The family of this 161-nucleotide RNA sequence from Tripterygium wilfordii is "U1 spliceosomal RNA". A search with the family's covariance model found it, with a score of 111 bits. The family has 100 seed sequences and 40,184 matches in Rfam 15.1. The literature on the family includes a 2019 paper in Science by Charenton et al., "Mechanism of 5' splice site transfer for human spliceosome activation". The organism belongs to Tripterygium, within Eukaryota.
RNA sequence: AUACUUACGGAUGGGGUCGAUGAGUGAUCAAGAAGACUCAUGGCCUAGGACAGUGACCUCCAUUGCGCAAUAGGAGGGGUGCUGCCCUAAGGUCUCCCUAAUUUGGGAGAGCCUACGUCGUAAUUUGUGGAAGCGGGGGCCUGCAUUCGCGCGGCCUCCUA
Numbered sequence: 001a002u003a004c005u006u007a008c009g010g011a012u013g014g015g016g017u018c019g020a021u022g023a024g025u026g027a028u029c030a031a032g033a034a035g036a037c038u039c040a041u042g043g044c045c046u047a048g049g050a051c052a053g054u055g056a057c058c059u060c061c062a063u064u065g066c067g068c069a070a071u072a073g074g075a076g077g078g079g080u081g082c083u084g085c086c087c088u089a090a091g092g093u094c095u096c097c098c099u100a101a102u103u104u105g106g107g108a109g110a111g112c113c114u115a116c117g118u119c120g121u122a123a124u125u126u127g128u129g130g131a132a133g134c135g136g137g138g139g140c141c142u143g144c145a146u147u148c149g150c151g152c153g154g155c156c157u158c159c160u161a
Stems, first nucleotide, its partner, number of pairs: 010119004014046006021040005047088003053082003057078003060074002090114003093110003097106002135160005142153003